[Rfam]
RNA sequence: CCCUUAUCUUUUAAUAGUUUCAAGUUGGUCCCUUAUCUUUAUUUUAGGUUUCAAGUUGGUCCCUUCCGUCAAUUUUUUAACUAUUUCCGUUAAAUUUGGACACGUGUCAUCUGUCCAAGUGUGCCACGUGUCCAAAUUUAACGGAAAUAGUUAAAAAAUUGACGGAAGGGACCAACUUGAAACCUAAAAUAAAGAUAAGGGACCAACUUGAAACUUUUAAAAGAUAAGGGA
Numbered sequence: 001c002c003c004u005u006a007u008c009u010u011u012u013a014a015u016a017g018u019u020u021c022a023a024g025u026u027g028g029u030c031c032c033u034u035a036u037c038u039u040u041a042u043u044u045u046a047g048g049u050u051u052c053a054a055g056u057u058g059g060u061c062c063c064u065u066c067c068g069u070c071a072a073u074u075u076u077u078u079a080a081c082u083a084u085u086u087c088c089g090u091u092a093a094a095u096u097u098g099g100a101c102a103c104g105u106g107u108c109a110u111c112u113g114u115c116c117a118a119g120u121g122u123g124c125c126a127c128g129u130g131u132c133c134a135a136a137u138u139u140a141a142c143g144g145a146a147a148u149a150g151u152u153a154a155a156a157a158a159u160u161g162a163c164g165g166a167a168g169g170g171a172c173c174a175a176c177u178u179g180a181a182a183c184c185u186a187a188a189a190u191a192a193a194g195a196u197a198a199g200g201g202a203c204c205a206a207c208u209u210g211a212a213a214c215u216u217u218u219a220a221a222a223g224a225u226a227a228g229g230g231a
Stems, first nucleotide, its partner, number of pairs: 002229007023208003027204003031200013045186003

MIR2655 microRNA precursor family: a 231-nucleotide RNA sequence from Trifolium subterraneum.
It scores 141 bits against the family's covariance model.
Its family is annotated with RISC complex and miRNA-mediated post-transcriptional gene silencing in the Gene Ontology.
The source organism's lineage runs through Eukaryota, Streptophyta, Streptophytina, Fabaceae and Trifolium.